[Rfam]
RNA sequence: UUGCCCAUCGGGGCCUUGGAUACCUGCUUAAUUUUU
Number, nucleotide and partner (000 for none) at each position: 001u000002u000003g014004c013005c012006c011007a000008u000009c000010g000011g006012g005013g004014c003015c000016u000017u026018g025019g024020a000021u000022a000023c000024c019025u018026g017027c000028u000029u000030a000031a000032u000033u000034u000035u000036u000